A member of the RNA family "ylbH leader" from Paenalicyclobacillus ferrooxydans, 132 nucleotides long. For this family Rfam cites "New RNA motifs suggest an expanded scope for riboswitches in bacterial genetic control" (Barrick et al., Proc Natl Acad Sci U S A, 2004).

RNA sequence: AGCAGAAAACCCACGCCCGGGUACGCGUGGGUUCUGCCGUUUGGUGAGUCGACGACUGUCAGCUCACCAAACGAUUCUGGGAGAGGAGAAACCGGAGGAAGCGCUUAUGGGGAACUAAGCCUUCACCCGCGG
Numbered sequence: 001a002g003c004a005g006a007a008a009a010c011c012c013a014c015g016c017c018c019g020g021g022u023a024c025g026c027g028u029g030g031g032u033u034c035u036g037c038c039g040u041u042u043g044g045u046g047a048g049u050c051g052a053c054g055a056c057u058g059u060c061a062g063c064u065c066a067c068c069a070a071a072c073g074a075u076u077c078u079g080g081g082a083g084a085g086g087a088g089a090a091a092c093c094g095g096a097g098g099a100a101g102c103g104c105u106u107a108u109g110g111g112g113a114a115c116u117a118a119g120c121c122u123u124c125a126c127c128c129g130c131g132g
Base pairs, nucleotide, nucleotide: 010031011030012029013028014027015026016025032081033080034079036077041070042069043068044067045066046065047064048063049062093129094128095127098124099123100122101121103120104119105118106117107116

This family is a putative regulatory RNA structure that is found upstream of the ylbH gene in B. subtilis and related low GC Gram-positive bacteria.